[Rfam]
RNA sequence: AUUUGUCCACUGGGGUGCCAAUUUGGCUGAGAUGAUACCCAUUGAACCUGAUUCUAGUUAGCACUAGCGUAGGAACGUGGCACGGAUACACUG
Numbered sequence: 001a002u003u004u005g006u007c008c009a010c011u012g013g014g015g016u017g018c019c020a021a022u023u024u025g026g027c028u029g030a031g032a033u034g035a036u037a038c039c040c041a042u043u044g045a046a047c048c049u050g051a052u053u054c055u056a057g058u059u060a061g062c063a064c065u066a067g068c069g070u071a072g073g074a075a076c077g078u079g080g081c082a083c084g085g086a087u088a089c090a091c092u093g
Stems, first nucleotide, its partner, number of pairs: 007080004011041004016035001017027004047073004054067004

Background
This 93-nucleotide sequence from Leuconostocaceae bacterium R-53105 belongs to the Rfam family "TPP riboswitch aptamer (THI element)". The family's consensus secondary structure is taken from published work. The match comes from Rfam's covariance-model search (64 bits). The source organism's lineage runs through Bacteria, Bacillota, Bacilli, Lactobacillales and Lactobacillaceae. Gene Ontology term of the family: thiamine pyrophosphate binding.